[Rfam]
RNA: ZMP/ZTP riboswitch aptamer (pfl RNA motif)
Organism: Leucobacter tardus
RNA sequence: UCGAUGCGUCGUGACUGGCGUGCAGAUGGUUACCAUCGGGAAGCGACAGCUGAAUCUAUGGCCGCUCGCCUGGGCCGCACUG
Numbered sequence: 001u002c003g004a005u006g007c008g009u010c011g012u013g014a015c016u017g018g019c020g021u022g023c024a025g026a027u028g029g030u031u032a033c034c035a036u037c038g039g040g041a042a043g044c045g046a047c048a049g050c051u052g053a054a055u056c057u058a059u060g061g062c063c064g065c066u067c068g069c070c071u072g073g074g075c076c077g078c079a080c081u082g
Stems, first nucleotide, its partner, number of pairs: 004051001008047005015040002017070004026036004059077005